RNA sequence: ACCAUUCUUUUCUUGGGGUUGCACUACUAUCCAAUGAGUGCAUAGGGAGGGCAGUACUGCUAACAUCUACCCAGCACGCUCACAUCAACUAGAGCUUUGCUUUAUAUGGUGCAAUGUUUUGGAAAA
Numbered sequence: 001a002c003c004a005u006u007c008u009u010u011u012c013u014u015g016g017g018g019u020u021g022c023a024c025u026a027c028u029a030u031c032c033a034a035u036g037a038g039u040g041c042a043u044a045g046g047g048a049g050g051g052c053a054g055u056a057c058u059g060c061u062a063a064c065a066u067c068u069a070c071c072c073a074g075c076a077c078g079c080u081c082a083c084a085u086c087a088a089c090u091a092g093a094g095c096u097u098u099g100c101u102u103u104a105u106a107u108g109g110u111g112c113a114a115u116g117u118u119u120u121g122g123a124a125a126a
Stems, first nucleotide, its partner, number of pairs: 006018004021060003026055003030051003039045001083111005090104006